Rfam assigns this 248-nucleotide RNA from Tricholaema leucomelas to the family "Small nucleolar RNA SNORD17". Lineage of the source: Eukaryota > Metazoa > Gnathostomata > Archelosauria > Tricholaema lacrymosa. Rfam links the family to the GO terms RNA processing and nucleolus. The snoRNA HBI-43 belongs to the C/D family of snoRNAs, guiding 2'O-ribose methylation at position U3797 of the 28S rRNA. Pseudouridylation in position U3797 is predicted to be guided by the H/ACA snoRNA ACA48. A search with the family's covariance model found it, with a score of 129 bits.
RNA sequence: GUGAGGUGAUGAUGAAGUUUAUCCAUUCUCUGAGUGCGUUGGUGUUGUCCUCCUGUAGUGCCCAGAUUCCUGUUCUAGGGUCUGGGUGCCGUGCAGCCUCCAGAGACCCUCCAGUCUUCUGGUGUCCUACUGGGGGCUGCUGUGGUCUGUGGCUGGCUGCCUACAGGAGUGAAUUGAUACCAGCAGGGUUGGAACUCCUCUUUUGAGGGGCUUCAUCCCAACUGAGAUGAGGGAUAAUGUCUGAUCAC
Numbered sequence: 001g002u003g004a005g006g007u008g009a010u011g012a013u014g015a016a017g018u019u020u021a022u023c024c025a026u027u028c029u030c031u032g033a034g035u036g037c038g039u040u041g042g043u044g045u046u047g048u049c050c051u052c053c054u055g056u057a058g059u060g061c062c063c064a065g066a067u068u069c070c071u072g073u074u075c076u077a078g079g080g081u082c083u084g085g086g087u088g089c090c091g092u093g094c095a096g097c098c099u100c101c102a103g104a105g106a107c108c109c110u111c112c113a114g115u116c117u118u119c120u121g122g123u124g125u126c127c128u129a130c131u132g133g134g135g136g137c138u139g140c141u142g143u144g145g146u147c148u149g150u151g152g153c154u155g156g157c158u159g160c161c162u163a164c165a166g167g168a169g170u171g172a173a174u175u176g177a178u179a180c181c182a183g184c185a186g187g188g189u190u191g192g193a194a195c196u197c198c199u200c201u202u203u204u205g206a207g208g209g210g211c212u213u214c215a216u217c218c219c220a221a222c223u224g225a226g227a228u229g230a231g232g233g234a235u236a237a238u239g240u241c242u243g244a245u246c247a248c
Base pairs, nucleotide, nucleotide: 010247011246012245013244017240018239020237023233024232026231027230028229030226031225034222035221038184039183040182041181043179044178045177046176048172049171050169051168052167053166054165056163057162059088060087061086062085063084064083065082068080069079070078071077093160094159095158096157097156098155106146107145112139113138114137115136116135117134118133119132121131122130123129124128186219187218188217190215191214192213193212195210196209197208198207199206